[Rfam]
RNA sequence: GAAAAAGCAGUGCUUUGUUGCCUUUUUGUGAAGAAAGCUCUCGUAUAUGUCAAGGAAAAAUGGGCAUUAUUCUUGGGUGAACCUAUGUAUAUUUUAAGUGACUUCAUGGUUCAGUAAAUGAUGCCACAUUU
Numbered sequence: 001g002a003a004a005a006a007g008c009a010g011u012g013c014u015u016u017g018u019u020g021c022c023u024u025u026u027u028g029u030g031a032a033g034a035a036a037g038c039u040c041u042c043g044u045a046u047a048u049g050u051c052a053a054g055g056a057a058a059a060a061u062g063g064g065c066a067u068u069a070u071u072c073u074u075g076g077g078u079g080a081a082c083c084u085a086u087g088u089a090u091a092u093u094u095u096a097a098g099u100g101a102c103u104u105c106a107u108g109g110u111u112c113a114g115u116a117a118a119u120g121a122u123g124c125c126a127c128a129u130u131u
Base pairs, nucleotide, nucleotide: 005050007048012038014036015035016034063125064124065123066122067121068120069119070118071117078113079112080111081110082109083108
Rfam assigns this 131-nucleotide sequence from Eutrema salsugineum to the family "Small nucleolar RNA snoR74". Its family is annotated with nucleolus and RNA processing in the Gene Ontology. Taxonomically the source falls in Eutrema (Eukaryota, Streptophytina, Tracheophyta, Mesangiospermae). The match comes from Rfam's covariance-model search (89 bits).